[Rfam]
RNA sequence: CCAGACGGUCGGGCGACCGCUGUUGCCUUCGGGUGAUGGAGGAAAGUCCGGGCUCCACGGGAGAACGGUGCCGGUUAACGACCGGCGAGGGUGACCUCAGGGAAAGUGCCACAGAAAACAGACCGCCUUCCGGGCCUGCUUGCGGGCUGGAGGUAAGGGUGAAACGGUGCGGUAAGAGCGCACCGCGCUUCCGGUAACGGCGGCGGCAGGGCAAACCCCACCGGGAGCAAGACCGAAUAGGGACGACAGGCAGCGCGGCGACGUGGCUGCCGGGGGCUCUCCCGCCUCGUCGUCCGGGUUGGUCGCGUGAGGCACGUUGCGAGACGUGUCCCAGAGGAAUGGUCGUCACAGCCUGAUUUUCGGGCUGUACAGAACCCGGCUUACAGACCGUCUGGCAGA
Numbered sequence: 001c002c003a004g005a006c007g008g009u010c011g012g013g014c015g016a017c018c019g020c021u022g023u024u025g026c027c028u029u030c031g032g033g034u035g036a037u038g039g040a041g042g043a044a045a046g047u048c049c050g051g052g053c054u055c056c057a058c059g060g061g062a063g064a065a066c067g068g069u070g071c072c073g074g075u076u077a078a079c080g081a082c083c084g085g086c087g088a089g090g091g092u093g094a095c096c097u098c099a100g101g102g103a104a105a106g107u108g109c110c111a112c113a114g115a116a117a118a119c120a121g122a123c124c125g126c127c128u129u130c131c132g133g134g135c136c137u138g139c140u141u142g143c144g145g146g147c148u149g150g151a152g153g154u155a156a157g158g159g160u161g162a163a164a165c166g167g168u169g170c171g172g173u174a175a176g177a178g179c180g181c182a183c184c185g186c187g188c189u190u191c192c193g194g195u196a197a198c199g200g201c202g203g204c205g206g207c208a209g210g211g212c213a214a215a216c217c218c219c220a221c222c223g224g225g226a227g228c229a230a231g232a233c234c235g236a237a238u239a240g241g242g243a244c245g246a247c248a249g250g251c252a253g254c255g256c257g258g259c260g261a262c263g264u265g266g267c268u269g270c271c272g273g274g275g276g277c278u279c280u281c282c283c284g285c286c287u288c289g290u291c292g293u294c295c296g297g298g299u300u301g302g303u304c305g306c307g308u309g310a311g312g313c314a315c316g317u318u319g320c321g322a323g324a325c326g327u328g329u330c331c332c333a334g335a336g337g338a339a340u341g342g343u344c345g346u347c348a349c350a351g352c353c354u355g356a357u358u359u360u361c362g363g364g365c366u367g368u369a370c371a372g373a374a375c376c377c378g379g380c381u382u383a384c385a386g387a388c389c390g391u392c393u394g395g396c397a398g399a
Base pairs, nucleotide, nucleotide: 001395002394003393004392005391006390007389008388009387010386011384012347013346014345015344016343017342018341020039021038022037023036024035025034026033027032044382045381046380048379049378050377051376052375053227054226055225056224061282063280066223067222068221069220070219071085072084073083074082075081086100087098088097089096090095101218102217106216107215108212109211110210123158124157125154126153127152128151129150130149132147166184167183168182169181170180171179185207186205187204188203189202191200192199193198231304232303233302234301241295242294243293244292245291246290273288274287275286276285277284311330312329313328314327315326316325317324318323
Rfam assigns this 399-nucleotide sequence from Acetobacter oeni to the family "Bacterial RNase P class A".
From the family's description: Ribonuclease P (RNase P) is a ubiquitous endoribonuclease, found in archaea, bacteria and eukarya as well as chloroplasts and mitochondria.
The family's consensus secondary structure is taken from published work.
Rfam links the family to the GO terms tRNA processing, dimeric ribonuclease P complex and ribonuclease P activity.
It scores 308 bits against the family's covariance model.